CRISPR RNA direct repeat element: a 37-nucleotide RNA from Defluviicoccus vanus. Lineage of the source: Bacteria > Pseudomonadati > Rhodospirillales > Rhodospirillaceae > Defluviicoccus.
RNA sequence: CACUUCCGCGGCAGUAAUGCUGCGGCCUCAUUGAAGC
Numbered sequence: 001c002a003c004u005u006c007c008g009c010g011g012c013a014g015u016a017a018u019g020c021u022g023c024g025g026c027c028u029c030a031u032u033g034a035a036g037c
Stems, first nucleotide, its partner, number of pairs: 006025007
Its family is annotated with defense response in the Gene Ontology.
It scores 41 bits against the family's covariance model.